[Rfam]
RNA sequence: AUCUCCCUUUCUGCCCCGCGUCCCUCACUCAUAUAGGACAGUGGGUCCUUCUUACUGUGGAGAAGAACAAGCCAGUGAGUCCAGCUACGCUUUGAUACAUCGUUUGCCUGAGACCCGCUGGAUCGUGUGCGUGGCCAUUAAUCUUGGUGUUGUUUUCCAAACACUAGGGUCGUGGUCGUGUCCUAUAUAU
Numbered sequence: 001a002u003c004u005c006c007c008u009u010u011c012u013g014c015c016c017c018g019c020g021u022c023c024c025u026c027a028c029u030c031a032u033a034u035a036g037g038a039c040a041g042u043g044g045g046u047c048c049u050u051c052u053u054a055c056u057g058u059g060g061a062g063a064a065g066a067a068c069a070a071g072c073c074a075g076u077g078a079g080u081c082c083a084g085c086u087a088c089g090c091u092u093u094g095a096u097a098c099a100u101c102g103u104u105u106g107c108c109u110g111a112g113a114c115c116c117g118c119u120g121g122a123u124c125g126u127g128u129g130c131g132u133g134g135c136c137a138u139u140a141a142u143c144u145u146g147g148u149g150u151u152g153u154u155u156u157c158c159a160a161a162c163a164c165u166a167g168g169g170u171c172g173u174g175g176u177c178g179u180g181u182c183c184u185a186u187a188u189a190u
Base pairs, nucleotide, nucleotide: 003062004061005060006059015045016044017043018042020039021038022037023036072121073120074119075118076117077116079114080113081112082110083109084107085106087104127183129181130180132178133177134176135175136174143169144168145167149164151163152162153161154160155159
Small nucleolar RNA snR43: a 190-nucleotide RNA from Henningerozyma blattae. NCBI's taxonomy places the organism under Eukaryota, Ascomycota, Saccharomycetes, Saccharomycetaceae, Henningerozyma blattae. It is annotated as an H/ACA-box small nucleolar RNA. The match comes from Rfam's covariance-model search (75 bits). For this family Rfam cites "The RNA world of the nucleolus: two major families of small RNAs defined by different box elements with related functions" (Balakin et al., Cell, 1996).